[Rfam]
RNA sequence: AUGGAAAAAGCCGAAAAUCCCAAAAAGAGUAGGCA
Numbered sequence: 001a002u003g004g005a006a007a008a009a010g011c012c013g014a015a016a017a018u019c020c021c022a023a024a025a026a027g028a029g030u031a032g033g034c035a
Base pairs, nucleotide, nucleotide: 003020004019005018010034011033012032

This 35-nucleotide RNA belongs to the Rfam family "DUF805b RNA".
The family's consensus secondary structure is taken from published work.
It is annotated as a cis-regulatory element.
The sequence is in the family's curated seed alignment.